[Rfam]
RNA sequence: GUUUUGUGAUGAAAUCCCAUGCGUGUCAUCUGAACCCCGUGUCUCUCUGUACCCGGACCGUACCGCCUGCGUUCUGUGGGCUGUGCGGAACUCUUGCAGAGGAUUCUGGGAGAUGAUCCUACUCUUUUAUCUGAAAACC
Numbered sequence: 001g002u003u004u005u006g007u008g009a010u011g012a013a014a015u016c017c018c019a020u021g022c023g024u025g026u027c028a029u030c031u032g033a034a035c036c037c038c039g040u041g042u043c044u045c046u047c048u049g050u051a052c053c054c055g056g057a058c059c060g061u062a063c064c065g066c067c068u069g070c071g072u073u074c075u076g077u078g079g080g081c082u083g084u085g086c087g088g089a090a091c092u093c094u095u096g097c098a099g100a101g102g103a104u105u106c107u108g109g110g111a112g113a114u115g116a117u118c119c120u121a122c123u124c125u126u127u128u129a130u131c132u133g134a135a136a137a138c139c
Stems, first nucleotide, its partner, number of pairs: 001138003045101007
The record is a 139-nucleotide sequence from Hymenochirus boettgeri, which matches "Small nucleolar RNA SNORD10" in Rfam. By type it is a C/D-box small nucleolar RNA. It scores 79 bits against the family's covariance model. Taxonomically the source falls in Hymenochirus (Eukaryota, Teleostomi, Amphibia, Pipinae). Its family is annotated with nucleolus and RNA processing in the Gene Ontology.